[Rfam]
RNA sequence: CAUAUGGUACUAGGCAAACCGUCGGUUGUGUUUAGUGGCGAUAUGGCUUCUUUUGAGGU
Numbered sequence: 001c002a003u004a005u006g007g008u009a010c011u012a013g014g015c016a017a018a019c020c021g022u023c024g025g026u027u028g029u030g031u032u033u034a035g036u037g038g039c040g041a042u043a044u045g046g047c048u049u050c051u052u053u054u055g056a057g058g059u
Base pairs, nucleotide, nucleotide: 001045002044003043004042005041007039008038011034012033013032014031015030016029
A member of the RNA family "L31-Gammaproteobacteria ribosomal protein leader" from Pasteurellaceae bacterium 15-036681, 59 nucleotides long.
The family's RNA type in Rfam is cis-regulatory leader.
Its Rfam clan is "Ribosomal Protein L31 Leader clan".